[Rfam]
RNA sequence: UAAUGUGCUGUGAUGAUACAAUAUGUGUGCUAGAGUUUCUGAUAUGAGAAUCUUCACCCAGAAUCUGAUUAUCAAACCCUUGGCUGUCCGAGCACACUG
Numbered sequence: 001u002a003a004u005g006u007g008c009u010g011u012g013a014u015g016a017u018a019c020a021a022u023a024u025g026u027g028u029g030c031u032a033g034a035g036u037u038u039c040u041g042a043u044a045u046g047a048g049a050a051u052c053u054u055c056a057c058c059c060a061g062a063a064u065c066u067g068a069u070u071a072u073c074a075a076a077c078c079c080u081u082g083g084c085u086g087u088c089c090g091a092g093c094a095c096a097c098u099g
Stems, first nucleotide, its partner, number of pairs: 001099002004096005038068002043063001045060002048057001
This 99-nucleotide sequence from Cicer arietinum belongs to the Rfam family "Small nucleolar RNA Z157/R69/R10".
Lineage of the source: Eukaryota > Embryophyta > Hologalegina > Cicereae > Cicer.
The match comes from Rfam's covariance-model search (59 bits).
Rfam classes the family as a C/D-box small nucleolar RNA.
Its family is annotated with nucleolus and RNA processing in the Gene Ontology.
The literature on the family includes a 2003 paper in Nucleic Acids Res by Chen et al., "The high diversity of snoRNAs in plants: identification and comparative study of 120 snoRNA genes from Oryza sativa".
Its Rfam clan is "SNORD52 clan".